[Rfam]
RNA sequence: AAAGAAAAGUAUAUCGUACCUCAUAUAAUCUCGAGAAUAAGGCUCGAACGUUUCUACCCGGUCACCGUAAAUGAUCGGACUAUGAGGAGAAGAAUCAUCGAC
Numbered sequence: 001a002a003a004g005a006a007a008a009g010u011a012u013a014u015c016g017u018a019c020c021u022c023a024u025a026u027a028a029u030c031u032c033g034a035g036a037a038u039a040a041g042g043c044u045c046g047a048a049c050g051u052u053u054c055u056a057c058c059c060g061g062u063c064a065c066c067g068u069a070a071a072u073g074a075u076c077g078g079a080c081u082a083u084g085a086g087g088a089g090a091a092g093a094a095u096c097a098u099c100g101a102c
Base pairs, nucleotide, nucleotide: 019087020086021085022084023083024082025081031047032046033045034044035043058078059077060076061075062074063073064072
Record summary:
The family of this 102-nucleotide RNA from Shouchella lonarensis is "Purine riboswitch aptamer". Riboswitches are metabolite binding domains within certain messenger RNAs that serve as precision sensors for their corresponding targets. Allosteric rearrangement of mRNA structure is mediated by ligand binding, and this results in modulation of gene expression. A class of riboswitches that selectively recognises guanine and becomes saturated at concentrations as low as 5 nM. In Bacillus subtilis, this mRNA motif is located on at least five separate transcriptional units that together encode 17 genes that are mostly involved in purine transport and purine nucleotide biosynthesis. The base pairs follow the family's consensus structure, which is taken from published work. The family is grouped with related families in Rfam's "Purine riboswitches".